A member of the RNA family "Small nucleolar RNA ACA64" from Mustela putorius, 126 nucleotides long. The family has 30 seed sequences and 9,537 matches in Rfam 15.1. Its family is annotated with nucleolus and RNA processing in the Gene Ontology. The family's consensus secondary structure was predicted with WAR. Taxonomically the source falls in Mustela putorius (Eukaryota, Metazoa, Laurasiatheria, Caniformia). A reference for the family is Schattner et al. (2006), "A computational screen for mammalian pseudouridylation guide H/ACA RNAs", RNA. A search with the family's covariance model found it, with a score of 36 bits.
RNA sequence: CAUCGGCUUUGGCCACCUGUGGCUCUGUCUGUGGUUCCCAGUGAGAGAGGACACCCCAGCGGUGCCCGGGUCCCCAGCUCACAGCCCACCUUGGGGUAGGAAGGUGAAAGCCACGCUCCCACAUGU
Numbered sequence: 001c002a003u004c005g006g007c008u009u010u011g012g013c014c015a016c017c018u019g020u021g022g023c024u025c026u027g028u029c030u031g032u033g034g035u036u037c038c039c040a041g042u043g044a045g046a047g048a049g050g051a052c053a054c055c056c057c058a059g060c061g062g063u064g065c066c067c068g069g070g071u072c073c074c075c076a077g078c079u080c081a082c083a084g085c086c087c088a089c090c091u092u093g094g095g096g097u098a099g100g101a102a103g104g105u106g107a108a109a110g111c112c113a114c115g116c117u118c119c120c121a122c123a124u125g126u
Stems, first nucleotide, its partner, number of pairs: 005052001007050004014043003021036004068119001070117001072115001079107004088097002